[Rfam]
Shown here is a 92-nucleotide RNA from Pan troglodytes, a member of the family "mir-635 microRNA precursor family". Lineage of the source: Eukaryota > Gnathostomata > Catarrhini > Hominoidea > Pan.
RNA sequence: GAGGAGCUGCCACUUGGGCACUGAAACAAUGUCCAUUAGGCUUUGUUAUGGAAACUUCUCCUGAUCAUUGUUUUGUGUCCAUUGAGCUUCCA
Numbered sequence: 001g002a003g004g005a006g007c008u009g010c011c012a013c014u015u016g017g018g019c020a021c022u023g024a025a026a027c028a029a030u031g032u033c034c035a036u037u038a039g040g041c042u043u044u045g046u047u048a049u050g051g052a053a054a055c056u057u058c059u060c061c062u063g064a065u066c067a068u069u070g071u072u073u074u075g076u077g078u079c080c081a082u083u084g085a086g087c088u089u090c091c092a
Base pairs, nucleotide, nucleotide: 003090004089005088006087007086008085015081016080017079018078019077020076021075023074024073025072026071027070028069029068030067031066035065036064037063038062039061040060045055046054047053